[Rfam]
The record is a 107-nucleotide RNA sequence from Yersinia ruckeri, which matches "Yersinia sRNA 224" in Rfam. The base pairs follow the family's consensus structure. The family has 5 seed sequences and 130 matches in Rfam 15.1. It is annotated as a small RNA. Taxonomically the source falls in Yersinia (Bacteria, Pseudomonadota, Gammaproteobacteria, Yersiniaceae).
RNA sequence: GAGGUUAAUGACAAAGUGCUCGCCGUGGCGAAAACCGUCAGAUCGUCAAGACGCCGUGAAUACAUCCUUGUAGGCUCGUUCCGUGCCAUACCUGGCGCAAACGCUUG
Numbered sequence: 001g002a003g004g005u006u007a008a009u010g011a012c013a014a015a016g017u018g019c020u021c022g023c024c025g026u027g028g029c030g031a032a033a034a035c036c037g038u039c040a041g042a043u044c045g046u047c048a049a050g051a052c053g054c055c056g057u058g059a060a061u062a063c064a065u066c067c068u069u070g071u072a073g074g075c076u077c078g079u080u081c082c083g084u085g086c087c088a089u090a091c092c093u094g095g096c097g098c099a100a101a102c103g104c105u106u107g
Base pairs, nucleotide, nucleotide: 014106015105016104017103018102020028021027022026030077031076041066042065043064045063046062051057052056083098084097085096086095087094088093